[Rfam]
RNA: PyrR binding site
RNA sequence: UAGUCCUUUAACUUUAGUCCCGUGAGGCUGAGAAGGAAACGUUGUUAAAGAGAAUCCAACAGGGAUUACUCUAUCCUCUCGUCAUGCGUGACGGGAGGAUUUUUUUU
Numbered sequence: 001u002a003g004u005c006c007u008u009u010a011a012c013u014u015u016a017g018u019c020c021c022g023u024g025a026g027g028c029u030g031a032g033a034a035g036g037a038a039a040c041g042u043u044g045u046u047a048a049a050g051a052g053a054a055u056c057c058a059a060c061a062g063g064g065a066u067u068a069c070u071c072u073a074u075c076c077u078c079u080c081g082u083c084a085u086g087c088g089u090g091a092c093g094g095g096a097g098g099a100u101u102u103u104u105u106u107u
Base pairs, nucleotide, nucleotide: 004037005036006035007034008033009032014031015030016029017028018027019026053067054066055065056064057063073100074099075098076097077096078095079094080093081092082091083090084089